[Rfam]
RNA sequence: UUAUGAAAAAGGCAAACCUAUUGAAAGAUAGGGACGCAAAGCCACGGGUCUAAAGCAUUAUGCCAUGACAGCCGGGUUGCCAAA
Numbered sequence: 001u002u003a004u005g006a007a008a009a010a011g012g013c014a015a016a017c018c019u020a021u022u023g024a025a026a027g028a029u030a031g032g033g034a035c036g037c038a039a040a041g042c043c044a045c046g047g048g049u050c051u052a053a054a055g056c057a058u059u060a061u062g063c064c065a066u067g068a069c070a071g072c073c074g075g076g077u078u079g080c081c082a083a084a
Stems, first nucleotide, its partner, number of pairs: 012037002017032006040078004045074003048069003055063003

The record is an 84-nucleotide sequence from Bacillus sp. V5-8f, which matches "c-di-GMP-I riboswitch aptamer" in Rfam. Pairs were carried over by alignment from the consensus structure, which is taken from published work. Rfam links the family to the GO term cyclic-di-GMP binding.